[Rfam]
RNA sequence: GGUCGGCGGUGCGAGGAAUAUAACACCGCAAGGGAAUAACUCCGCUGUUUAUGGUACAGUUUUGAGCCGCCGACCACCCUACU
Numbered sequence: 001g002g003u004c005g006g007c008g009g010u011g012c013g014a015g016g017a018a019u020a021u022a023a024c025a026c027c028g029c030a031a032g033g034g035a036a037u038a039a040c041u042c043c044g045c046u047g048u049u050u051a052u053g054g055u056a057c058a059g060u061u062u063u064g065a066g067c068c069g070c071c072g073a074c075c076a077c078c079c080u081a082c083u
Stems, first nucleotide, its partner, number of pairs: 001075009013042003017037001026033002044060005
Dot-bracket structure: (((((((((...(((.(........((....))...)..))).(((((.......)))))......)))))))))........
The record is an 83-nucleotide sequence from Glaesserella parasuis, which matches "sRNA-Xcc1" in Rfam. The match comes from Rfam's covariance-model search (65 bits). For this family Rfam cites "sRNA-Xcc1, an integron-encoded transposon- and plasmid-transferred trans-acting sRNA, is under the positive control of the key virulence regulators HrpG and HrpX of Xanthomonas campestris pathovar campestris" (Chen et al., RNA Biol, 2011).